[Rfam]
Shown here is a 138-nucleotide RNA from Thinocorus orbignyianus, a member of the family "Small nucleolar RNA SNORA12". It scores 66 bits against the family's covariance model. By type it is an H/ACA-box small nucleolar RNA. Gene Ontology terms of the family: RNA processing and nucleolus. For this family Rfam cites "A novel experimental approach for systematic identification of box H/ACA snoRNAs from eukaryotes" (Gu et al., Nucleic Acids Res, 2005). U108 belongs to the H/ACA family of snoRNAs. The sequence is predicted to guide the pseudouridylation of the U372 residue in the 28S rRNA subunit. However it has not been reported as a pseudouridylation site. The base pairs follow the family's consensus structure, which was predicted with RNAalifold.
Nucleotides: 138
Base pairs, nucleotide, nucleotide: 005063006062007061008060009059010058011057023051024050025049027047029045030044031043032042076131077130078129079128080127081126103123104122107119
Number, partner (000 for none) and nucleotide at each position: 001000u002000a003000u004000u005063g006062u007061g008060g009059u010058g011057g012000u013000u014000u015000c016000u017000g018000u019000a020000a021000u022000u023051g024050g025049c026000a027047g028000a029045u030044c031043u032042g033000a034000a035000a036000c037000u038000a039000c040000a041000g042032c043031a044030g045029a046000a047027c048000g049025g050024c051023c052000u053000u054000a055000a056000a057011c058010u059009a060008c061007c062006a063005c064000a065000g066000a067000g068000a069000u070000c071000a072000g073000a074000a075000a076131g077130g078129a079128g080127a081126a082000g083000g084000u085000u086000g087000u088000g089000c090000u091000g092000a093000g094000a095000a096000c097000u098000u099000u100000u101000u102000c103123a104122a105000g106000c107119u108000u109000u110000c111000a112000g113000u114000u115000u116000u117000c118000a119107g120000c121000a122104u123103u124000u125000u126081u127080u128079c129078u130077c131076c132000u133000a134000c135000a136000c137000a138000a